A member of the RNA family "Small nucleolar RNA SNORD121A" from Strix occidentalis, 85 nucleotides long. NCBI's taxonomy places the organism under Eukaryota, Metazoa, Neognathae, Strix, Strix occidentalis. Gene Ontology terms of the family: RNA processing and nucleolus. Rfam 15.1 lists 881 matches to the family in 444 species. Pairs were carried over by alignment from the consensus structure, which was predicted with WAR. For this family Rfam cites "snoSeeker: an advanced computational package for screening of guide and orphan snoRNA genes in the human genome" (Yang et al., Nucleic Acids Res, 2006). The match comes from Rfam's covariance-model search (59 bits).
[Rfam]
RNA sequence: GUCCAAAAUACGGUGAGAUGUCUUUUCCAAGCACAUAUCUGAUUGCUCUGUGUGGAAAAUGACUGUUGCUGAGUGAUUUUUGGAU
Numbered sequence: 001g002u003c004c005a006a007a008a009u010a011c012g013g014u015g016a017g018a019u020g021u022c023u024u025u026u027c028c029a030a031g032c033a034c035a036u037a038u039c040u041g042a043u044u045g046c047u048c049u050g051u052g053u054g055g056a057a058a059a060u061g062a063c064u065g066u067u068g069c070u071g072a073g074u075g076a077u078u079u080u081u082g083g084a085u
Stems, first nucleotide, its partner, number of pairs: 001085006008078001009075003